[Rfam]
RNA: TPP riboswitch aptamer (THI element)
Organism: Deinococcus peraridilitoris
RNA sequence: GGGCGUCACCGGGGGUGUCCCGCGCUCAUGCGGGACUGAGAAAUACCCCAGGAACCUGAUCCAGUUCAUGCUGGCGGAGGGAGCGUGACCGCGCCGUGAA
Numbered sequence: 001g002g003g004c005g006u007c008a009c010c011g012g013g014g015g016u017g018u019c020c021c022g023c024g025c026u027c028a029u030g031c032g033g034g035a036c037u038g039a040g041a042a043a044u045a046c047c048c049c050a051g052g053a054a055c056c057u058g059a060u061c062c063a064g065u066u067c068a069u070g071c072u073g074g075c076g077g078a079g080g081g082a083g084c085g086u087g088a089c090c091g092c093g094c095c096g097u098g099a100a
Stems, first nucleotide, its partner, number of pairs: 006088004011049004016043001017036007055080003061074004